RNA sequence: GUGAGGUGAUGACAAAGUUUAUCCAUUCUCUGAGUGCAGUGGUGCUGUCCUCUUGCAGUACCCAGAUUCCUGUUCUAGGGUCUGGGUGCUGUGCAGCCUCCAGAGAUCCUUCCAGUCUCCCAGUGUCCUACUGGGGGCUGCUGUGGUCUGUGGCUGGCUGCCUGCAGGAGUGAAGUGGUGCCAUCAGGGUUGGAGACCCUCUCUGGGGGACCUCCAUCCUGACUGAGAUGAAGGAUGAUGUCUGAUCAC
Numbered sequence: 001g002u003g004a005g006g007u008g009a010u011g012a013c014a015a016a017g018u019u020u021a022u023c024c025a026u027u028c029u030c031u032g033a034g035u036g037c038a039g040u041g042g043u044g045c046u047g048u049c050c051u052c053u054u055g056c057a058g059u060a061c062c063c064a065g066a067u068u069c070c071u072g073u074u075c076u077a078g079g080g081u082c083u084g085g086g087u088g089c090u091g092u093g094c095a096g097c098c099u100c101c102a103g104a105g106a107u108c109c110u111u112c113c114a115g116u117c118u119c120c121c122a123g124u125g126u127c128c129u130a131c132u133g134g135g136g137g138c139u140g141c142u143g144u145g146g147u148c149u150g151u152g153g154c155u156g157g158c159u160g161c162c163u164g165c166a167g168g169a170g171u172g173a174a175g176u177g178g179u180g181c182c183a184u185c186a187g188g189g190u191u192g193g194a195g196a197c198c199c200u201c202u203c204u205g206g207g208g209g210a211c212c213u214c215c216a217u218c219c220u221g222a223c224u225g226a227g228a229u230g231a232a233g234g235a236u237g238a239u240g241u242c243u244g245a246u247c248a249c
Stems, first nucleotide, its partner, number of pairs: 010248003017241002020238001023234002026232003030227002034223002039185001042182001043180006049172001050170005056164002059088007068080004093161006106147002113140005119135007187220003191216004198207002

This 249-nucleotide RNA from Indicator maculatus belongs to the Rfam family "Small nucleolar RNA SNORD17". For this family Rfam cites "RNomics: an experimental approach that identifies 201 candidates for novel, small, non-messenger RNAs in mouse" (Huttenhofer et al., EMBO J, 2001). Taxonomically the source falls in Indicator (Eukaryota, Amniota, Archosauria, Coelurosauria). It scores 113 bits against the family's covariance model. The snoRNA HBI-43 belongs to the C/D family of snoRNAs, guiding 2'O-ribose methylation at position U3797 of the 28S rRNA. Pseudouridylation in position U3797 is predicted to be guided by the H/ACA snoRNA ACA48.